This 78-nucleotide RNA from Homo sapiens belongs to the Rfam family "mir-4773 microRNA precursor family". Rfam 15.1 lists 10 matches to the family in 5 species. Gene Ontology terms of the family: miRNA-mediated post-transcriptional gene silencing and RISC complex. Lineage of the source: Eukaryota > Bilateria > Dipnotetrapodomorpha > Amniota > Homo.
[Rfam]
RNA sequence: UGCUCCCCAGCCUUUCUAUGCUCCUGUUCUGCUUUAUUUCAUCAAAGCAGAACAGGAGCAUAGAAAGGCUGGGGAGCA
Dot-bracket structure: (((((((((((((((((((((((((((((((((((........)))))))))))))))))))))))))))))))))))